A member of the RNA family "L17 ribosomal protein downstream element" from Streptococcus thermophilus, 76 nucleotides long. The base pairs follow the family's consensus structure, which is taken from published work. The organism belongs to Streptococcus thermophilus, within Bacteria. Rfam classes the family as a cis-regulatory element.
[Rfam]
RNA sequence: UGAGUGUUAUGAUGAUGGAAUAGCUUAGCUUUUCUUAGUCUAGCUCUGGUCUACCGCUGGGCAAGAUGCCCAGCGG
Numbered sequence: 001u002g003a004g005u006g007u008u009a010u011g012a013u014g015a016u017g018g019a020a021u022a023g024c025u026u027a028g029c030u031u032u033u034c035u036u037a038g039u040c041u042a043g044c045u046c047u048g049g050u051c052u053a054c055c056g057c058u059g060g061g062c063a064a065g066a067u068g069c070c071c072a073g074c075g076g
Base pairs, nucleotide, nucleotide: 002046003045004044005043011040012039013038017035018034019033020032022030054076055075056074057073058072059071060070061069062068